[Rfam]
RNA sequence: UAUUUAUCAUAGACAGUGUUCUAUAUAAUUC
Numbered sequence: 001u002a003u004u005u006a007u008c009a010u011a012g013a014c015a016g017u018g019u020u021c022u023a024u025a026u027a028a029u030u031c
Stems, first nucleotide, its partner, number of pairs: 002030001004028004009024005014018001

The family of this 31-nucleotide RNA sequence from Peromyscus maniculatus is "Iron response element II". Rfam describes the family as follows. IRE, TFRC, SLC40A1, SDHB, SLC11A2, CDC42BPA, ACO2, ALAS2_H.SAPIENS, CDC14A, EPAS1, ALAS2, qoxD, Hao1, NDUFS1, transferrin, Aconitate. Rfam 15.1 lists 5,197 matches to the family in 722 species.